[Rfam]
RNA sequence: CCUCGUUUCGAGGGGAGUCCCGCAAGGGGCUGAGAGGCUGUUGGAUCUAACCACGAUCGGCACAGCGACCCUUAGAACCUGAUCCGGUUCAUACCGGCGAAGGGACUGAACGCGCGGGUGGCC
Numbered sequence: 001c002c003u004c005g006u007u008u009c010g011a012g013g014g015g016a017g018u019c020c021c022g023c024a025a026g027g028g029g030c031u032g033a034g035a036g037g038c039u040g041u042u043g044g045a046u047c048u049a050a051c052c053a054c055g056a057u058c059g060g061c062a063c064a065g066c067g068a069c070c071c072u073u074a075g076a077a078c079c080u081g082a083u084c085c086g087g088u089u090c091a092u093a094c095c096g097g098c099g100a101a102g103g104g105a106c107u108g109a110a111c112g113c114g115c116g117g118g119u120g121g122c123c
Stems, first nucleotide, its partner, number of pairs: 007110004011072004017030005037066005078103003084097004
RNA: TPP riboswitch aptamer (THI element)
Organism: Elstera litoralis